A member of the RNA family "mir-306 microRNA precursor family" from Scaptodrosophila lebanonensis, 83 nucleotides long. For this family Rfam cites "Systematic discovery and characterization of fly microRNAs using 12 Drosophila genomes" (Stark et al., Genome Res, 2007). Gene Ontology terms of the family: miRNA-mediated post-transcriptional gene silencing and RISC complex. The base pairs follow the family's consensus structure, which was predicted with RNAalifold.
[Rfam]
RNA sequence: ACACAUUGCUGGUCAGGUACUUAGUGACUCUCAAUGGAGUUUUUCAUAUCUUGAGAGUAACUGUGUGCCUGCGCUGCAAGUGG
Numbered sequence: 001a002c003a004c005a006u007u008g009c010u011g012g013u014c015a016g017g018u019a020c021u022u023a024g025u026g027a028c029u030c031u032c033a034a035u036g037g038a039g040u041u042u043u044u045c046a047u048a049u050c051u052u053g054a055g056a057g058u059a060a061c062u063g064u065g066u067g068c069c070u071g072c073g074c075u076g077c078a079a080g081u082g083g
Base pairs, nucleotide, nucleotide: 002082003081004080009076011074014071015070016069017068018067019066020065023062024061025060027058028057029056030055031054032053033052034047035046036045